[Rfam]
RNA sequence: GGGUGAAACAAAAGGUACGCUGGAGUUCCGACCUUUCAAAAGAGAGUGUUGAACAACAAUAAUUUUUGGAAACGCUUUACCGGGGUUAUCCGUUUGUUGGAA
Numbered sequence: 001g002g003g004u005g006a007a008a009c010a011a012a013a014g015g016u017a018c019g020c021u022g023g024a025g026u027u028c029c030g031a032c033c034u035u036u037c038a039a040a041a042g043a044g045a046g047u048g049u050u051g052a053a054c055a056a057c058a059a060u061a062a063u064u065u066u067u068g069g070a071a072a073c074g075c076u077u078u079a080c081c082g083g084g085g086u087u088a089u090c091c092g093u094u095u096g097u098u099g100g101a102a
Stems, first nucleotide, its partner, number of pairs: 003020002008016002029051004033046005076100002079097002082094002084091002
RNA: SL2 RNA
Organism: Caenorhabditis brenneri